[Rfam]
RNA sequence: UUGCAUUCUUAAAAACCCCCCUGGAGUUGACAGUAGCUUCUGGGACAAGCAAGAAUGCUAAAGCAAAGAAAACAGAUCUUUCCAAGGUGAAGUCUUGCCUUUUGUUUGCACUUCACCAUUUCAGAUCUUUGACAAAU
Number, nucleotide and partner (000 for none) at each position: 001u000002u000003g058004c057005a056006u055007u000008c000009u000010u049011a000012a000013a000014a000015a000016c000017c000018c000019c044020c043021c042022u000023g040024g000025a038026g037027u036028u000029g000030a000031c000032a000033g000034u000035a000036g027037c026038u025039u000040c023041u000042g021043g020044g019045a000046c000047a000048a000049g010050c000051a000052a000053g000054a000055a006056u005057g004058c003059u000060a000061a000062a137063g000064c000065a000066a000067a000068g000069a130070a129071a000072a000073c000074a128075g127076a126077u000078c000079u000080u000081u000082c000083c000084a000085a000086g117087g116088u115089g114090a113091a112092g111093u000094c000095u108096u000097g000098c000099c104100u000101u000102u000103u000104g099105u000106u000107u000108g095109c000110a000111c092112u091113u090114c089115a088116c087117c086118a000119u000120u000121u000122c000123a000124g000125a000126u076127c075128u074129u070130u069131g000132a000133c000134a000135a000136a000137u062
This 137-nucleotide sequence from Polypterus senegalus belongs to the Rfam family "Small nucleolar RNA SNORA14". Rfam links the family to the GO terms RNA processing and nucleolus. Pairs were carried over by alignment from the consensus structure, which was predicted with RNAfold.